[Rfam]
RNA sequence: CAUCUGCUAUGAUGAUACAUGAAAAAAUUCACAUGUCAGACUUCAGAGAUUUCGGUCUAUGAGAAGAAUAUUUCAUGUUUUCUGAGCUGACG
Number, nucleotide and partner (000 for none) at each position: 001c092002a000003u090004c089005u000006g087007c086008u000009a000010u000011g000012a000013u000014g000015a000016u000017a000018c000019a000020u000021g000022a000023a000024a000025a000026a000027a000028u000029u000030c000031a000032c000033a000034u000035g000036u000037c000038a000039g000040a000041c000042u000043u000044c000045a000046g000047a000048g057049a056050u055051u000052u000053c000054g000055g050056u049057c048058u000059a000060u000061g000062a000063g000064a000065a000066g000067a000068a000069u000070a000071u000072u000073u000074c000075a000076u000077g000078u000079u000080u000081u000082c000083u000084g000085a000086g007087c006088u000089g004090a003091c000092g001